[Rfam]
RNA sequence: ACCGGACGAGACACUUCAUAGUACAACGAAUCUGGACAGUAAGCCUGUCCAGAUUCGUUGUACUAUGAAGUGUCAUAUCCGGU
Numbered sequence: 001a002c003c004g005g006a007c008g009a010g011a012c013a014c015u016u017c018a019u020a021g022u023a024c025a026a027c028g029a030a031u032c033u034g035g036a037c038a039g040u041a042a043g044c045c046u047g048u049c050c051a052g053a054u055u056c057g058u059u060g061u062a063c064u065a066u067g068a069a070g071u072g073u074c075a076u077a078u079c080c081g082g083u
Base pairs, nucleotide, nucleotide: 001083002082003081004080005079006078008076010074011073012072013071014070015069016068018066019065020064021063022062023061024060025059026058027057028056029055030054031053032052033051034050035049036048037047038046